Shown here is a 114-nucleotide RNA from Cohaesibacter sp. ES.047, a member of the family "Alphaproteobacterial ar14". About the family: Smr14C2 was renamed NfeR1 (Nodule Formation Efficiency RNA) highly expressed in salt stress and during the symbiotic interaction on legume roots.
RNA sequence: GCAAUUCAGGCUGACUCCUCCUCCCAGAAGCCUGAUUGAUCCAAAACUACCUCCUCCCGGUUUUGGAUCCUGCAACGAAGCCCACCGGACCUCCUCCCCCGGUGGGCUUUCGUC
Numbered sequence: 001g002c003a004a005u006u007c008a009g010g011c012u013g014a015c016u017c018c019u020c021c022u023c024c025c026a027g028a029a030g031c032c033u034g035a036u037u038g039a040u041c042c043a044a045a046a047c048u049a050c051c052u053c054c055u056c057c058c059g060g061u062u063u064u065g066g067a068u069c070c071u072g073c074a075a076c077g078a079a080g081c082c083c084a085c086c087g088g089a090c091c092u093c094c095u096c097c098c099c100c101g102g103u104g105g106g107c108u109u110u111c112g113u114c
Stems, first nucleotide, its partner, number of pairs: 007034006038069010078109011
A search with the family's covariance model found it, with a score of 84 bits.